Rfam assigns this 253-nucleotide RNA sequence from Peptoclostridium litorale to the family "T-box leader".
Rfam classes the family as a cis-regulatory leader.
The literature on the family includes a 2000 paper in RNA by Grundy et al., "tRNA determinants for transcription antitermination of the Bacillus subtilis tyrS gene".
Pairs were carried over by alignment from the consensus structure, which is taken from published work.
The family has 48 seed sequences and 19,395 matches in Rfam 15.1.
The organism belongs to Peptoclostridium litorale, within Bacteria.
RNA sequence: UCAAAAGUUUAGACGGAGACAAAAAUACCUGUUUGCAUGAUUAUAGAGAGCUAAUGGUUGGUGGAAAUUAGCAUCGUGUGAGGUGUACAAUGAUCACUCCCGAGCUGCCAAGUCGAAAGAAUCCAAGUAGGCAAGGCCGGUCGCCACCGUUAUAUGGCUAUAUGGUUAAGGCUUGCCCCUGACCUGAGUUUAGAGAUGGCUUUUGCCAUGAAUUAGGGUGGUACCACGAGGAAUAUAUACCUUCGUCCCUAUA
Numbered sequence: 001u002c003a004a005a006a007g008u009u010u011a012g013a014c015g016g017a018g019a020c021a022a023a024a025a026u027a028c029c030u031g032u033u034u035g036c037a038u039g040a041u042u043a044u045a046g047a048g049a050g051c052u053a054a055u056g057g058u059u060g061g062u063g064g065a066a067a068u069u070a071g072c073a074u075c076g077u078g079u080g081a082g083g084u085g086u087a088c089a090a091u092g093a094u095c096a097c098u099c100c101c102g103a104g105c106u107g108c109c110a111a112g113u114c115g116a117a118a119g120a121a122u123c124c125a126a127g128u129a130g131g132c133a134a135g136g137c138c139g140g141u142c143g144c145c146a147c148c149g150u151u152a153u154a155u156g157g158c159u160a161u162a163u164g165g166u167u168a169a170g171g172c173u174u175g176c177c178c179c180u181g182a183c184c185u186g187a188g189u190u191u192a193g194a195g196a197u198g199g200c201u202u203u204u205g206c207c208a209u210g211a212a213u214u215a216g217g218g219u220g221g222u223a224c225c226a227c228g229a230g231g232a233a234u235a236u237a238u239a240c241c242u243u244c245g246u247c248c249c250u251a252u253a
Stems, first nucleotide, its partner, number of pairs: 007105002015100004026087003030083001039075003050072006108136002112132003138149003196209005215250004226246005